RNA sequence: UAUGAUUAGCUAUUUAUAGCUAGGAUUGUAUAGAGGGUAGUGGCAGUCGCCCCAACUCCGACAUGUGGGUAAAAUCUUUGAUUUUAUUCACAAGUAAGGUGAGAAACAGCAAUUGUGUUGGAAACUUUAAUUUUGUUAAGAAAUUAAGGAACUGU
Numbered sequence: 001u002a003u004g005a006u007u008a009g010c011u012a013u014u015u016a017u018a019g020c021u022a023g024g025a026u027u028g029u030a031u032a033g034a035g036g037g038u039a040g041u042g043g044c045a046g047u048c049g050c051c052c053c054a055a056c057u058c059c060g061a062c063a064u065g066u067g068g069g070u071a072a073a074a075u076c077u078u079u080g081a082u083u084u085u086a087u088u089c090a091c092a093a094g095u096a097a098g099g100u101g102a103g104a105a106a107c108a109g110c111a112a113u114u115g116u117g118u119u120g121g122a123a124a125c126u127u128u129a130a131u132u133u134u135g136u137u138a139a140g141a142a143a144u145u146a147a148g149g150a151a152c153u154g155u
Stems, first nucleotide, its partner, number of pairs: 006023007035052004043155004056103003061095002064092007073083004107120005125149009
The family of this 155-nucleotide RNA is "IS605-orfB-II RNA". The base pairs follow the family's consensus structure, which is taken from published work.